The record is a 79-nucleotide RNA from Pristimantibacillus lignocellulolyticus, which matches "Glycine riboswitch aptamer" in Rfam.
It scores 53 bits against the family's covariance model.
[Rfam]
RNA sequence: GAAGCUGCUUCUGGAGAGACUGCAUACGAUGCAGCGCCGAAGGAUUCACUAUCUCAGGCAAAAGGACAGAAGAGUAACA
Numbered sequence: 001g002a003a004g005c006u007g008c009u010u011c012u013g014g015a016g017a018g019a020c021u022g023c024a025u026a027c028g029a030u031g032c033a034g035c036g037c038c039g040a041a042g043g044a045u046u047c048a049c050u051a052u053c054u055c056a057g058g059c060a061a062a063a064g065g066a067c068a069g070a071a072g073a074g075u076a077a078c079a
Base pairs, nucleotide, nucleotide: 006074008072009071010070011069012068013067020034021033022032023031036059037058038057039055040054043053044052045051